[Rfam]
RNA sequence: AUGCUGAUGUUGUAGAUCUGUUGUUAUGGUCUUAGCGGAUUUCAGUAAGAUUUUUGUCAAUGAUCUGAUUGUUACACAUACUGAAGCCU
Number, nucleotide and partner (000 for none) at each position: 001a089002u000003g087004c086005u085006g000007a000008u000009g000010u000011u000012g000013u000014a000015g000016a000017u000018c000019u000020g000021u000022u000023g000024u000025u000026a000027u000028g000029g000030u000031c000032u000033u000034a000035g000036c000037g000038g000039a000040u000041u000042u000043c000044a000045g000046u000047a000048a000049g000050a000051u000052u000053u000054u000055u000056g000057u000058c000059a000060a000061u000062g000063a000064u000065c000066u000067g000068a000069u000070u000071g000072u000073u000074a000075c000076a000077c000078a000079u000080a000081c000082u000083g000084a000085a005086g004087c003088c000089u001
A member of the RNA family "Small nucleolar RNA R11/Z151" from Protea cynaroides, 89 nucleotides long. The base pairs follow the family's consensus structure, which was predicted with PFOLD. For this family Rfam cites "Identification of 66 box C/D snoRNAs in Arabidopsis thaliana: extensive gene duplications generated multiple isoforms predicting new ribosomal RNA 2'-O-methylation sites" (Barneche et al., J Mol Biol, 2001). Taxonomically the source falls in Protea (Eukaryota, Streptophyta, Euphyllophyta, Mesangiospermae). Gene Ontology terms of the family: nucleolus and RNA processing.